[Rfam]
RNA sequence: CCUGCCACUAUGUCUGUCUGUCAUAGUGACUGCAUAUAAUCCAGUGGAGGCUUAAAUGGACACAGCUCUAGGAAGCAGUGCUGUCUAAUUAAAUGGGCAACCCUGUGCCAAAAGGCCUGGAACAGUG
Numbered sequence: 001c002c003u004g005c006c007a008c009u010a011u012g013u014c015u016g017u018c019u020g021u022c023a024u025a026g027u028g029a030c031u032g033c034a035u036a037u038a039a040u041c042c043a044g045u046g047g048a049g050g051c052u053u054a055a056a057u058g059g060a061c062a063c064a065g066c067u068c069u070a071g072g073a074a075g076c077a078g079u080g081c082u083g084u085c086u087a088a089u090u091a092a093a094u095g096g097g098c099a100a101c102c103c104u105g106u107g108c109c110a111a112a113a114g115g116c117c118u119g120g121a122a123c124a125g126u127g
Stems, first nucleotide, its partner, number of pairs: 005047005018032001020030001021028001063119003066115002069112001071109002076105003080101001084097003
RNA: Small nucleolar RNA SNORA65
Organism: Esox lucius